[Rfam]
RNA sequence: CCGGGGACGACCCCGGAUUUACGUGCCUUACUGCGGGGACGACCCCA
Number, nucleotide and partner (000 for none) at each position: 001c016002c015003g014004g013005g012006g011007a000008c000009g000010a000011c006012c005013c004014c003015g002016g001017a000018u000019u000020u000021a000022c000023g000024u000025g000026c000027c000028u000029u000030a000031c000032u000033g000034c000035g046036g045037g044038g043039a000040c000041g000042a000043c038044c037045c036046c035047a000

Shown here is a 47-nucleotide RNA from Pseudomonas fulva, a member of the family "Guanidine-II riboswitch aptamer (mini-ykkC)".
The match comes from Rfam's covariance-model search (38 bits).
Simpler in structure and has fewer highly conserved nucleotide positions than the ykkC-yxkD leader. Despite this each of its two stem-loop structures directly bind free guanidine. Therefore, mini-ykkC RNA motif represents a distinct class of guanidine-sensing RNAs. Its crystal structure was also determined.
The literature on the family includes a 2007 paper in Nucleic Acids Res by Weinberg et al., "Identification of 22 candidate structured RNAs in bacteria using the CMfinder comparative genomics pipeline".